[Rfam]
RNA sequence: AAAGAUUGGUGACGACGGGAGAGGGCACGCUCGAACACCUCCAGGCACUCGCUGCAUGAACGCAUUCCGGCGUGCUCUCUCUCGUUGUCACCCACUU
Numbered sequence: 001a002a003a004g005a006u007u008g009g010u011g012a013c014g015a016c017g018g019g020a021g022a023g024g025g026c027a028c029g030c031u032c033g034a035a036c037a038c039c040u041c042c043a044g045g046c047a048c049u050c051g052c053u054g055c056a057u058g059a060a061c062g063c064a065u066u067c068c069g070g071c072g073u074g075c076u077c078u079c080u081c082u083c084g085u086u087g088u089c090a091c092c093c094a095c096u097u
Base pairs, nucleotide, nucleotide: 010090011089012088013087014086016084017083020080021079023077025075026074027073028072029071030070031069033067034066
RNA: MIR535 microRNA precursor family